[Rfam]
RNA: Streptomyces sRNA 4677
Organism: Streptomycetaceae bacterium MP113-05
RNA sequence: GGGCCUGGUGGUCCCGGAGAUCCCCUAAAGGACUCCAGGAGAAAGAACUUCCCUCCCACCCACCCUUCCCAGGUCGGUCACCCACAAGGGUGACUUCUGUACGCAGGGUGGCGGGGAGGGGGUAAUGUCGGCCACGACAACCAGAUAAGUACGGCCCCCGUCCGGGAUUGGCGUCCCGAUCGAGGGCCUCACCACCAAGGAAGACGGAACCUUCCCG
Numbered sequence: 001g002g003g004c005c006u007g008g009u010g011g012u013c014c015c016g017g018a019g020a021u022c023c024c025c026u027a028a029a030g031g032a033c034u035c036c037a038g039g040a041g042a043a044a045g046a047a048c049u050u051c052c053c054u055c056c057c058a059c060c061c062a063c064c065c066u067u068c069c070c071a072g073g074u075c076g077g078u079c080a081c082c083c084a085c086a087a088g089g090g091u092g093a094c095u096u097c098u099g100u101a102c103g104c105a106g107g108g109u110g111g112c113g114g115g116g117a118g119g120g121g122g123u124a125a126u127g128u129c130g131g132c133c134a135c136g137a138c139a140a141c142c143a144g145a146u147a148a149g150u151a152c153g154g155c156c157c158c159c160g161u162c163c164g165g166g167a168u169u170g171g172c173g174u175c176c177c178g179a180u181c182g183a184g185g186g187c188c189u190c191a192c193c194a195c196c197a198a199g200g201a202a203g204a205c206g207g208a209a210c211c212u213u214c215c216c217g
Stems, first nucleotide, its partner, number of pairs: 007196004016069004078093006153188005159182002164177004199215005